This 61-nucleotide sequence from Propithecus coquereli belongs to the Rfam family "U7 small nuclear RNA". The base pairs follow the family's consensus structure, which was predicted with PFOLD. Taxonomically the source falls in Propithecus (Eukaryota, Bilateria, Mammalia, Indriidae).
RNA sequence: CAGUGUUACAGCUCUUUUAGAAUUUCUCUAGCAGCUUCUCUGGUCCUCACUGGCAGACCUC
Number, nucleotide and partner (000 for none) at each position: 001c000002a000003g000004u000005g000006u000007u000008a000009c000010a000011g000012c000013u000014c000015u000016u000017u000018u000019a000020g000021a000022a000023u000024u000025u000026c000027u000028c000029u000030a000031g000032c000033a000034g058035c000036u000037u057038c056039u055040c053041u052042g051043g050044u049045c000046c000047u000048c000049a044050c043051u042052g041053g040054c000055a039056g038057a037058c034059c000060u000061c000
Rfam's curators write: Animal histone pre-mRNAs are spliced by a different mechanism than nuclear pre-mRNAs and self-splicing introns. This processing involves the U7 snRNP, which contains only one RNA species: U7.